[Rfam]
RNA sequence: GGGAUCCGUUCGCUAUGACCAACAGGCAGGGACGGGGGAACCACCUUUUUACCGGCCUUGCGAGUCAAGGCCUAGGGGUUAAGUCCAGAAGCUCCGCCUAGCCGCGGGCAGGACCGGGUGACUCCCAUCCGAACCCGACAGCUCACCCCGCAGGCAUGGGAGAGGCAAACC
Numbered sequence: 001g002g003g004a005u006c007c008g009u010u011c012g013c014u015a016u017g018a019c020c021a022a023c024a025g026g027c028a029g030g031g032a033c034g035g036g037g038g039a040a041c042c043a044c045c046u047u048u049u050u051a052c053c054g055g056c057c058u059u060g061c062g063a064g065u066c067a068a069g070g071c072c073u074a075g076g077g078g079u080u081a082a083g084u085c086c087a088g089a090a091g092c093u094c095c096g097c098c099u100a101g102c103c104g105c106g107g108g109c110a111g112g113a114c115c116g117g118g119u120g121a122c123u124c125c126c127a128u129c130c131g132a133a134c135c136c137g138a139c140a141g142c143u144c145a146c147c148c149c150g151c152a153g154g155c156a157u158g159g160g161a162g163a164g165g166c167a168a169a170c171c
Base pairs, nucleotide, nucleotide: 005031006030007029033150034149035148036147037146042075076136077135078134084113085112086111116130117129118128119127
The record is a 171-nucleotide RNA from Arthrobacter globiformis, which matches "c-di-AMP riboswitch aptamer (ydaO/yuaA leader)" in Rfam. Rfam's curators write: This family represents a conserved RNA structure found upstream of the ydaO and yuaA genes in Bacillus subtilis and related genes in other bacteria. NCBI's taxonomy places the organism under Bacteria, Actinomycetes, Micrococcales, Micrococcaceae, Arthrobacter globiformis. The base pairs follow the family's consensus structure. It scores 49 bits against the family's covariance model.